Shown here is a 107-nucleotide RNA from Streptomyces glaucescens, a member of the family "Streptomyces RNA 4115". On this family, see Vockenhuber et al., RNA Biol 2011: "Deep sequencing-based identification of small non-coding RNAs in Streptomyces coelicolor". By type it is a small RNA. The organism belongs to Streptomyces, within Bacteria. Identified by deep sequencing of transcriptome at the end of exponential growth phase. Sequencing size consistent with notrthern blot size. Streptomyces specific.

RNA sequence: GCGUGGGUCGGCCCGCUGGACUGCCGGUGGGCUGGGGGACACCGCCGCCUCACAUCCCCGCGGGCGGCGGUCCGGCCCGGGGGGCGAGUCCCGUUUCCCGGGCCGUG
Numbered sequence: 001g002c003g004u005g006g007g008u009c010g011g012c013c014c015g016c017u018g019g020a021c022u023g024c025c026g027g028u029g030g031g032c033u034g035g036g037g038g039a040c041a042c043c044g045c046c047g048c049c050u051c052a053c054a055u056c057c058c059c060g061c062g063g064g065c066g067g068c069g070g071u072c073c074g075g076c077c078c079g080g081g082g083g084g085c086g087a088g089u090c091c092c093g094u095u096u097c098c099c100g101g102g103c104c105g106u107g
Stems, first nucleotide, its partner, number of pairs: 001106002006073002009034010035040001042070009053060001074104013